About this RNA
A member of the RNA family "mir-5728 microRNA precursor family" from Tetranychus urticae, 84 nucleotides long. It is one of the family's seed sequences. The source organism's lineage runs through Eukaryota, Metazoa, Acariformes, Trombidiformes and Tetranychus.

RNA sequence: CUGCAUGAUUCAGACAGCCGUAUGAGUGGCAGAAUAUUACUAUAAUAAUUAUUUGCCACUCAUACGGAUGCUAGAAUCUUGUAA
Numbered sequence: 001c002u003g004c005a006u007g008a009u010u011c012a013g014a015c016a017g018c019c020g021u022a023u024g025a026g027u028g029g030c031a032g033a034a035u036a037u038u039a040c041u042a043u044a045a046u047a048a049u050u051a052u053u054u055g056c057c058a059c060u061c062a063u064a065c066g067g068a069u070g071c072u073a074g075a076a077u078c079u080u081g082u083a084a
Base pairs, nucleotide, nucleotide: 002083003082004081005080007078008077009076010075011074013071015070016069018067019066020065021064022063023062024061025060026059027058028057029056030055031054032053033052036049037048038047039046